Small nucleolar RNA Z107/R87: a 108-nucleotide RNA from Centaurea solstitialis.
The family has 9 seed sequences and 783 matches in Rfam 15.1.
The base pairs follow the family's consensus structure, which was predicted with RNAfold.

RNA sequence: GAUCGCAAUGACGACUUGCAAAAUUCAAGCUCAACAGACCGGAAUGCAGGCUUAUCUCUUCAACAGAGGUUCGUUUGCGUGUCGAUAUUCCCGCUGAACUGAGCGAUC
Numbered sequence: 001g002a003u004c005g006c007a008a009u010g011a012c013g014a015c016u017u018g019c020a021a022a023a024u025u026c027a028a029g030c031u032c033a034a035c036a037g038a039c040c041g042g043a044a045u046g047c048a049g050g051c052u053u054a055u056c057u058c059u060u061c062a063a064c065a066g067a068g069g070u071u072c073g074u075u076u077g078c079g080u081g082u083c084g085a086u087a088u089u090c091c092c093g094c095u096g097a098a099c100u101g102a103g104c105g106a107u108c
Base pairs, nucleotide, nucleotide: 001108002107003106004105005104006103